[Rfam]
Source information
SAM (S-adenosyl methionine) riboswitch aptamer: a 111-nucleotide sequence from Knoellia subterranea. For this family Rfam cites "The aptamer core of SAM-IV riboswitches mimics the ligand-binding site of SAM-I riboswitches" (Weinberg et al., RNA, 2008). Taxonomically the source falls in Knoellia subterranea (Bacteria, Bacillati, Actinomycetota, Micrococcales). A search with the family's covariance model found it, with a score of 101 bits. Pairs were carried over by alignment from the consensus structure, which is taken from published work.
RNA sequence: GGUCAAGAGUCCCAGCGCCAAGCCCCGGCUUGCUGGGCGGCAACCCUCCUCGCGGUGGGGUGCCCCGGGUGAAGACACGGCCCUGUCGGUUCCGACGGGCAAGCGCGACAC
Number, nucleotide and partner (000 for none) at each position: 001g000002g076003u075004c074005a000006a000007g000008a000009g038010u000011c037012c036013c035014a034015g033016c032017g000018c000019c000020a000021a030022g029023c000024c000025c000026c000027g000028g000029c022030u021031u000032g016033c015034u014035g013036g012037g011038c009039g064040g063041c062042a000043a000044c060045c059046c058047u000048c055049c054050u000051c000052g000053c000054g049055g048056u000057g000058g046059g045060g044061u000062g041063c040064c039065c000066c000067g000068g000069g000070u000071g000072a000073a000074g004075a003076c002077a000078c000079g000080g100081c099082c098083c097084u000085g096086u095087c094088g093089g000090u000091u000092c000093c088094g087095a086096c085097g083098g082099g081100c080101a000102a000103g000104c000105g000106c000107g000108a000109c000110a000111c000